[Rfam]
RNA sequence: AGCCUCCUGGUAUUUAACACAGCUGUGUUCUUAUACUGACUGUGUAGAACGAGAAGGAAAUAAACCUUACCCCAUAUGCAUUUCAUCCCCGGACCCUGCACCUCGUCUAUAUUGUGAAUAGGGAAAUAUGG
Numbered sequence: 001a002g003c004c005u006c007c008u009g010g011u012a013u014u015u016a017a018c019a020c021a022g023c024u025g026u027g028u029u030c031u032u033a034u035a036c037u038g039a040c041u042g043u044g045u046a047g048a049a050c051g052a053g054a055a056g057g058a059a060a061u062a063a064a065c066c067u068u069a070c071c072c073c074a075u076a077u078g079c080a081u082u083u084c085a086u087c088c089c090c091g092g093a094c095c096c097u098g099c100a101c102c103u104c105g106u107c108u109a110u111a112u113u114g115u116g117a118a119u120a121g122g123g124a125a126a127u128a129u130g131g
Stems, first nucleotide, its partner, number of pairs: 003057003007053002020042003025036004070123003074119002085108001088105001091102002
Dot-bracket structure: ..(((.((...........(((..((((....))))...))).........)).)))............(((.((.........(..(..((........))..)..).........)).)))........
Description
Shown here is a 131-nucleotide RNA from Pan troglodytes, a member of the family "Small nucleolar RNA SNORA51". Rfam describes the family as follows. ACA51 is a member of the H/ACA class of snoRNA that guide the sites of modification of uridines to pseudouridines.